[Rfam]
RNA sequence: GGGUUGCGGAGGGAGGGCCCGGGAGGGGUGAGCGUCCAUUAUCGUCUAACCCUAACUGAGAUGGGCGUAGGCGCCGCGCUUUUGCUUCCCGCGCGCUGUUUUUCUCGCUGACUUUCAGCGGGCGGAAAAGCCUCGGCCUACUGCCGUCUACUGUCGUAUCUGGAGCAAACAAAAAAUGUCAGCCGCUGGUCCGCUCGCCCCAUCCGGGAACCUGCGGUGGCUCGUCCGCCCUGCCCCCGCGCUCCGCCUAGAGGCCGCGGUCCGCCCGGGGCUUCUCCGGAGGCACCCAAUGCAGCCGCGAAGAGUUAGGCUCUGUCAGCCGCGGAUCCCGCGGGGGCCAAGGGUGAGGCUUAGGCCGCGGGCCGCAGGAAGAAAAACCGAGCGAGUUCUCACGCGCGGUGCGCUUCCCUGAGCUGUGGGUCGUGCGCCUGGGACUCGGCUCAGACACGU
Number, nucleotide and partner (000 for none) at each position: 001g000002g000003g000004u000005u000006g000007c000008g000009g000010a000011g000012g000013g000014a000015g000016g000017g000018c208019c207020c206021g205022g204023g203024a000025g201026g200027g199028g198029u197030g196031a195032g000033c000034g190035u189036c188037c000038a000039u000040u000041a000042u000043c000044g000045u000046c000047u000048a000049a000050c000051c000052c000053u000054a000055a000056c000057u000058g000059a000060g000061a000062u000063g000064g000065g000066c000067g000068u000069a000070g000071g000072c000073g000074c000075c000076g000077c000078g131079c130080u129081u128082u127083u000084g000085c000086u000087u000088c000089c000090c124091g123092c122093g000094c120095g119096c118097u117098g116099u000100u000101u000102u000103u000104c000105u000106c000107g183108c182109u181110g180111a179112c178113u176114u175115u174116c098117a097118g096119c095120g094121g000122g092123c091124g090125g000126a000127a082128a081129a080130g079131c078132c000133u000134c000135g000136g000137c000138c000139u000140a000141c000142u000143g000144c000145c000146g000147u000148c000149u000150a000151c000152u000153g000154u000155c000156g000157u000158a000159u000160c000161u000162g000163g000164a000165g000166c000167a000168a000169a000170c000171a000172a000173a000174a115175a114176a113177u000178g112179u111180c110181a109182g108183c107184c000185g000186c000187u000188g036189g035190u034191c000192c000193g000194c000195u031196c030197g029198c028199c027200c026201c025202a000203u023204c022205c021206g020207g019208g018209a000210a000211c369212c368213u367214g366215c365216g364217g363218u000219g000220g000221c000222u000223c000224g350225u349226c348227c346228g345229c344230c343231c342232u000233g000234c000235c336236c335237c334238c333239g332240c331241g330242c000243u326244c325245c324246g323247c322248c000249u000250a000251g000252a000253g000254g000255c000256c300257g299258c298259g297260g296261u000262c295263c000264g293265c292266c000267c000268g288269g287270g286271g000272c000273u000274u000275c000276u000277c000278c000279g000280g000281a000282g000283g000284c000285a000286c270287c269288c268289a000290a000291u000292g265293c264294a000295g262296c260297c259298g258299c257300g256301a000302a314303g313304a312305g311306u000307u000308a000309g000310g000311c305312u304313c303314u302315g000316u000317c000318a000319g000320c000321c000322g247323c246324g245325g244326a243327u000328c000329c000330c241331g240332c239333g238334g237335g236336g235337g000338c000339c000340a000341a000342g231343g230344g229345u228346g227347a000348g226349g225350c224351u000352u000353a000354g000355g000356c000357c000358g000359c000360g000361g000362g000363c217364c216365g215366c214367a213368g212369g211370a000371a000372g000373a000374a000375a000376a000377a000378c000379c000380g442381a441382g440383c439384g437385a436386g435387u434388u433389c432390u431391c000392a000393c000394g000395c000396g000397c000398g000399g428400u427401g426402c425403g424404c000405u000406u000407c420408c419409c418410u000411g000412a000413g000414c000415u000416g000417u000418g409419g408420g407421u000422c000423g000424u403425g402426c401427g400428c399429c000430u000431g390432g389433g388434a387435c386436u385437c384438g000439g383440c382441u381442c380443a000444g000445a000446c000447a000448c000449g000450u000
Description:
Shown here is a 450-nucleotide sequence, a member of the family "Vertebrate telomerase RNA". About the family: Telomerase is a ribonucleoprotein reverse transcriptase that synthesises telomeric DNA. Telomerase RNAs differ greatly in sequence and structure between vertebrates, ciliates and yeasts, but they share a 5' pseudoknot structure close to the template sequence. Vertebrate telomerase RNAs have a 3' H/ACA snoRNA-like domain. A reference for the family is Chen et al. (2000), "Secondary structure of vertebrate telomerase RNA", Cell. Rfam's curators put it in the seed alignment. The family has 37 seed sequences and 523 matches in Rfam 15.1. The family's consensus secondary structure is taken from published work. It is annotated as a non-coding RNA gene.